[Rfam]
RNA sequence: UAUCACCAAGGAUAGUUUUUCUCGCAAAAAAAUUUCCUGCGAGAGACGGAACGGACUCAAUACCAUUCUCCGCGUUUGGUAGCGAUUUUAAUAAUGAAAAGGAAAGA
Number, nucleotide and partner (000 for none) at each position: 001u000002a000003u000004c000005a000006c000007c000008a000009a000010g000011g000012a000013u000014a000015g000016u000017u000018u000019u000020u044021c043022u042023c041024g040025c039026a038027a000028a000029a000030a000031a000032a000033u000034u000035u000036c000037c000038u026039g025040c024041g023042a022043g021044a020045g000046a000047c000048g000049g000050a000051a000052c000053g000054g000055a000056c000057u000058c000059a000060a000061u081062a080063c079064c078065a076066u000067u074068c000069u000070c000071c000072g000073c000074g067075u000076u065077u000078g064079g063080u062081a061082g000083c000084g000085a000086u000087u000088u000089u000090a000091a000092u000093a000094a000095u000096g000097a000098a000099a000100a000101g000102g000103a000104a000105a000106g000107a000